[Rfam]
RNA sequence: AAGACUGUUGAUUUAAUCAUCGAGUCAUUCUCGCGAAGGCGGGAAUCUCCCAAGUAUUUAAGAGAUCCCCGUGUCAAGCACGAGGAUUGUAAGUUAAAUCUCCAGUAUAAUUUCA
Number, nucleotide and partner (000 for none) at each position: 001a000002a000003g026004a025005c024006u022007g021008u000009u000010g018011a017012u000013u000014u000015a000016a000017u011018c010019a000020u000021c007022g006023a000024g005025u004026c003027a046028u045029u044030c043031u042032c041033g040034c039035g000036a000037a000038g000039g034040c033041g032042g031043g030044a029045a028046u027047c000048u000049c000050c000051c000052a000053a000054g000055u000056a000057u000058u105059u104060a000061a000062g102063a101064g100065a087066u086067c085068c084069c000070c082071g081072u080073g079074u078075c000076a000077a000078g074079c073080a072081c071082g070083a000084g068085g067086a066087u065088u000089g000090u000091a000092a000093g000094u000095u000096a000097a000098a000099u000100c064101u063102c062103c000104a059105g058106u000107a000108u000109a000110a000111u000112u000113u000114c000115a000
A member of the RNA family "Francisella sRNA B" from Francisella tularensis, 115 nucleotides long. The sequence is in the family's curated seed alignment. The family's consensus secondary structure was predicted with RNAfold. By type it is a small RNA. From the family's description: Deletion led to significant changes in the expression of several mRNAs. However, it did not alter Francisella's growth under stress condition or its ability to induce disease in a mouse model.